The family of this 574-nucleotide sequence is "ROOL RNA".

RNA sequence: CAUAUUAUAUAAUGUACUUUGUAACCAGUUGGAAACACAUUUAACAAAUGUGGCUGGACACGCUGAAUAGUGGCACACGUUUUAGAGGGAUACCUUUAAAAACGUAAUAGAUGUUCCGUAGAAAAGUAAUUUUCUUGGUAAGAAUGUAGAUAAAGAUACAUUCAAAACAUGGCGUGGUGCAAUAGAAUAAGUGGAAGUCAAGUGACUAUGCGAAAUCGGGAUCACAAUAGACGGUUCGUGGAACAAGAAUCCAUUAUUGCAAUGUGUGGUAGCAUUGCUUCCGAUGGAAAAACCAAUAAGAUCUUAGUUCGGUUGAUGGGAGAAAUUCCUAUAAGAGAAAGCAUAGGUACGAGUAGAGAAAACCCGACAUUAUGAAUAAUUCUAUUAUAAUGGGUAUAAAAAUUAUUAUUACUUCUGAAAGUUCUCGAAAGUUGUGGGUAAAAUCCCACUUGGGUUUAGGGAAACCGACUAAAGAAGGUCAGAACUAGCUAUUCUUUCCUCAGACUUUAGCCCCCAAUGCAUGAAUGACAGCUUAUUCUACUUGUAAGGUGAAGACCUACAUUUUUAAGACACC
Numbered sequence: 001c002a003u004a005u006u007a008u009a010u011a012a013u014g015u016a017c018u019u020u021g022u023a024a025c026c027a028g029u030u031g032g033a034a035a036c037a038c039a040u041u042u043a044a045c046a047a048a049u050g051u052g053g054c055u056g057g058a059c060a061c062g063c064u065g066a067a068u069a070g071u072g073g074c075a076c077a078c079g080u081u082u083u084a085g086a087g088g089g090a091u092a093c094c095u096u097u098a099a100a101a102a103c104g105u106a107a108u109a110g111a112u113g114u115u116c117c118g119u120a121g122a123a124a125a126g127u128a129a130u131u132u133u134c135u136u137g138g139u140a141a142g143a144a145u146g147u148a149g150a151u152a153a154a155g156a157u158a159c160a161u162u163c164a165a166a167a168c169a170u171g172g173c174g175u176g177g178u179g180c181a182a183u184a185g186a187a188u189a190a191g192u193g194g195a196a197g198u199c200a201a202g203u204g205a206c207u208a209u210g211c212g213a214a215a216u217c218g219g220g221a222u223c224a225c226a227a228u229a230g231a232c233g234g235u236u237c238g239u240g241g242a243a244c245a246a247g248a249a250u251c252c253a254u255u256a257u258u259g260c261a262a263u264g265u266g267u268g269g270u271a272g273c274a275u276u277g278c279u280u281c282c283g284a285u286g287g288a289a290a291a292a293c294c295a296a297u298a299a300g301a302u303c304u305u306a307g308u309u310c311g312g313u314u315g316a317u318g319g320g321a322g323a324a325a326u327u328c329c330u331a332u333a334a335g336a337g338a339a340a341g342c343a344u345a346g347g348u349a350c351g352a353g354u355a356g357a358g359a360a361a362a363c364c365c366g367a368c369a370u371u372a373u374g375a376a377u378a379a380u381u382c383u384a385u386u387a388u389a390a391u392g393g394g395u396a397u398a399a400a401a402a403u404u405a406u407u408a409u410u411a412c413u414u415c416u417g418a419a420a421g422u423u424c425u426c427g428a429a430a431g432u433u434g435u436g437g438g439u440a441a442a443a444u445c446c447c448a449c450u451u452g453g454g455u456u457u458a459g460g461g462a463a464a465c466c467g468a469c470u471a472a473a474g475a476a477g478g479u480c481a482g483a484a485c486u487a488g489c490u491a492u493u494c495u496u497u498c499c500u501c502a503g504a505c506u507u508u509a510g511c512c513c514c515c516a517a518u519g520c521a522u523g524a525a526u527g528a529c530a531g532c533u534u535a536u537u538c539u540a541c542u543u544g545u546a547a548g549g550u551g552a553a554g555a556c557c558u559a560c561a562u563u564u565u566u567a568a569g570a571c572a573c574c
Stems, first nucleotide, its partner, number of pairs: 008570001010568001012566001014564001016562001025057005037051004059176006073114003077108001080101009116138003120135006142163007183559001185539001187537001190534002206346006216336002218305006234244004250288006259278007267295004309367004318329004350431001356426005414504004434520001437447002451516003454466001459465001467513001470510001472508003477500002481495004547558004
It is one of the family's seed sequences.